Rfam assigns this 112-nucleotide sequence from Tichodroma muraria to the family "Magnesium riboswitch aptamer (Magnesium responsive RNA element)". The Magnesium sensor RNA element is a cis-regulatory element that regulates the expression of the magnesium transporter protein MgtA. It is located in the 5' UTR of this gene. The element adopts different structures depending on the presence or absence of Mg2+, this has the affect of regulating whether transcription reads through the mgtA coding region or stops within the 5' UTR. Pairs were carried over by alignment from the consensus structure, which is taken from published work. Taxonomically the source falls in Tichodroma (Eukaryota, Gnathostomata, Euteleostomi, Neoaves).
RNA sequence: CUUACCGGAGGCCACAUGGAUCCCGAUCCCACACCUCUCCUGACCAGGAGAAAACCUUCUUUCCGGUAAGCCAGCCUUUUGCUGUCUCACCGGCGUGAGGCAGCAACGUUCA
Numbered sequence: 001c002u003u004a005c006c007g008g009a010g011g012c013c014a015c016a017u018g019g020a021u022c023c024c025g026a027u028c029c030c031a032c033a034c035c036u037c038u039c040c041u042g043a044c045c046a047g048g049a050g051a052a053a054a055c056c057u058u059c060u061u062u063c064c065g066g067u068a069a070g071c072c073a074g075c076c077u078u079u080u081g082c083u084g085u086c087u088c089a090c091c092g093g094c095g096u097g098a099g100g101c102a103g104c105a106a107c108g109u110u111c112a
Stems, first nucleotide, its partner, number of pairs: 001070011017031003036051005081104010